[Rfam]
RNA: mir-92 microRNA precursor family
Organism: Poecilia reticulata
RNA sequence: UGUCCUAUUCAGGUGGGGAUCGGUGGCAAUGCUGUUCUGUAGGUAUUGCACUUGUCCCGGCCUGUAAAGGAACU
Numbered sequence: 001u002g003u004c005c006u007a008u009u010c011a012g013g014u015g016g017g018g019a020u021c022g023g024u025g026g027c028a029a030u031g032c033u034g035u036u037c038u039g040u041a042g043g044u045a046u047u048g049c050a051c052u053u054g055u056c057c058c059g060g061c062c063u064g065u066a067a068a069g070g071a072a073c074u
Stems, first nucleotide, its partner, number of pairs: 004070003010064005016058005022052003026049008
Dot-bracket structure: ...(((...(((((.(((((.(((.((((((((........))))))))))).))))).)))))...)))....